[Rfam]
RNA sequence: AUAAAAAAAAGUCCCUAGAUUAUUUUCUAGGGAAAUUGACAAAUGAUAAUUCAUUUGCCUAAUGGGAGAGGAGAAACCGGAGGAAGAACUUAUGGGGAAAAGUCUUCUCCGCGG
Numbered sequence: 001a002u003a004a005a006a007a008a009a010a011g012u013c014c015c016u017a018g019a020u021u022a023u024u025u026u027c028u029a030g031g032g033a034a035a036u037u038g039a040c041a042a043a044u045g046a047u048a049a050u051u052c053a054u055u056u057g058c059c060u061a062a063u064g065g066g067a068g069a070g071g072a073g074a075a076a077c078c079g080g081a082g083g084a085a086g087a088a089c090u091u092a093u094g095g096g097g098a099a100a101a102g103u104c105u106u107c108u109c110c111g112c113g114g
Stems, first nucleotide, its partner, number of pairs: 012033008036065003040057006078111004083107004088103004
Dot-bracket structure: ...........((((((((......))))))))..(((.((((((......)))))).....)))............((((.((((.((((........))))))))))))...
ylbH leader: a 114-nucleotide sequence from Desulfuribacillus alkaliarsenatis.
About the family: This family is a putative regulatory RNA structure that is found upstream of the ylbH gene in B. subtilis and related low GC Gram-positive bacteria.
The literature on the family includes a 2004 paper in Proc Natl Acad Sci U S A by Barrick et al., "New RNA motifs suggest an expanded scope for riboswitches in bacterial genetic control".